[Rfam]
RNA sequence: GGGCACCUCCGGGGGCCUUCACUUCGGGGACCUCGCCACGGCAGGGCCCUUCAACAACGGAAGACAGAAA
Dot-bracket structure: ((((.(((...)))))))........(((.(((.........))).))).....................
RNA: L2-Alphaproteobacteria ribosomal protein leader